[Rfam]
RNA sequence: CUCGGACGUCUCUUCACUUCGGAUCGUCGGGCACGUUCCUGCCCGUGAGAGGAAUAUUC
Number, nucleotide and partner (000 for none) at each position: 001c000002u000003c000004g000005g000006a000007c000008g000009u000010c051011u050012c049013u048014u000015c047016a046017c000018u000019u000020c000021g000022g000023a000024u000025c000026g000027u000028c045029g044030g043031g042032c041033a040034c000035g000036u000037u000038c000039c000040u033041g032042c031043c030044c029045g028046u016047g015048a013049g012050a011051g010052g000053a000054a000055u000056a000057u000058u000059c000
A member of the RNA family "msiK RNA" from Rhodococcus gordoniae, 59 nucleotides long. NCBI's taxonomy places the organism under Bacteria, Bacillati, Actinomycetes, Mycobacteriales, Rhodococcus. It scores 57 bits against the family's covariance model.